Record summary
Shown here is a 155-nucleotide sequence from Sulfitobacter mediterraneus, a member of the family "6S / SsrS RNA". Pairs were carried over by alignment from the consensus structure, which is taken from published work. The literature on the family includes a 2000 paper in Cell by Wassarman and Storz, "6S RNA regulates E. coli RNA polymerase activity". From the family's description: E. coli 6S RNA was the first non coding RNA to be sequenced, but its function was unknown until recently. Lineage of the source: Bacteria > Pseudomonadati > Alphaproteobacteria > Rhodobacterales > Sulfitobacter.
RNA sequence: CGGGUACUGCCCUGUGCGUGUGACGCUACAUUCCAGUGGCCUUAAGCAAAUCCGAGGGAGCUGGCUCUGUUUGAGCCCUGGUUCAUUUAUCUGGCGCCCACCUGUACAUACAGGUCCUCGGGAAUAAAAAGCUGACCGGCAGGUGCGGUCCCGUC
Numbered sequence: 001c002g003g004g005u006a007c008u009g010c011c012c013u014g015u016g017c018g019u020g021u022g023a024c025g026c027u028a029c030a031u032u033c034c035a036g037u038g039g040c041c042u043u044a045a046g047c048a049a050a051u052c053c054g055a056g057g058g059a060g061c062u063g064g065c066u067c068u069g070u071u072u073g074a075g076c077c078c079u080g081g082u083u084c085a086u087u088u089a090u091c092u093g094g095c096g097c098c099c100a101c102c103u104g105u106a107c108a109u110a111c112a113g114g115u116c117c118u119c120g121g122g123a124a125u126a127a128a129a130a131g132c133u134g135a136c137c138g139g140c141a142g143g144u145g146c147g148g149u150c151c152c153g154u155c
Base pairs, nucleotide, nucleotide: 003152004151006149007148008147009146010145012142013141014140015139017138018137031123032122033121034120036118038116039115040114041113056099057098058097060095061094062093063092064091069088072085073084074083075082076081